[Rfam]
RNA sequence: CUUCGUGGGUGGCAUACCUCCCUUUUACGGGCGGGGUAAUCGCGCAUAGCUGUCAUCCGACAAUGCAGAUUUCCAAAGCUCGCGCUGAUGCGGGCUUUUUUAU
Numbered sequence: 001c002u003u004c005g006u007g008g009g010u011g012g013c014a015u016a017c018c019u020c021c022c023u024u025u026u027a028c029g030g031g032c033g034g035g036g037u038a039a040u041c042g043c044g045c046a047u048a049g050c051u052g053u054c055a056u057c058c059g060a061c062a063a064u065g066c067a068g069a070u071u072u073c074c075a076a077a078g079c080u081c082g083c084g085c086u087g088a089u090g091c092g093g094g095c096u097u098u099u100u101u102a103u
Stems, first nucleotide, its partner, number of pairs: 009043004014037002017034002020031003077096008

The family of this 103-nucleotide sequence from Serratia symbiotica is "Tryptophan operon leader". It is annotated as a cis-regulatory leader. A search with the family's covariance model found it, with a score of 61 bits. Rfam links the family to the GO terms tryptophan biosynthetic process and transcriptional attenuation by ribosome. The family's consensus secondary structure is taken from published work. At least 6 amino acid operons are known to be regulated by attenuation. In each a leader sequence of 150-200 bp is found upstream of the first gene in the operon. This leader sequence can assume two different secondary structures known as the terminator and the anti-terminator structure.